Shown here is a 104-nucleotide sequence from Punica granatum, a member of the family "Small nucleolar RNA R30/Z108". Pairs were carried over by alignment from the consensus structure, which was predicted with PFOLD. snoR30 is a C/D box small nucleolar RNA which acts as a methylation guide for 18S ribosomal RNA in plants. Rfam links the family to the GO terms RNA processing and nucleolus. On this family, see Marker et al., Curr Biol 2002: "Experimental RNomics. Identification of 140 Candidates for Small Non-Messenger RNAs in the Plant Arabidopsis thaliana". It is annotated as a C/D-box small nucleolar RNA. A search with the family's covariance model found it, with a score of 71 bits. Clan: SNORD100 clan.

RNA sequence: GGUGGUUACGAUGAGGAAAAAGAAGCUCCCUCUUCUGAGAAAUGAAAUGAAGAAGGAUUGCUGGCAGAAUCGAACCUAUGACUUUACUCGCCACCACUGAGUAA
Numbered sequence: 001g002g003u004g005g006u007u008a009c010g011a012u013g014a015g016g017a018a019a020a021a022g023a024a025g026c027u028c029c030c031u032c033u034u035c036u037g038a039g040a041a042a043u044g045a046a047a048u049g050a051a052g053a054a055g056g057a058u059u060g061c062u063g064g065c066a067g068a069a070u071c072g073a074a075c076c077u078a079u080g081a082c083u084u085u086a087c088u089c090g091c092c093a094c095c096a097c098u099g100a101g102u103a104a
Stems, first nucleotide, its partner, number of pairs: 006104004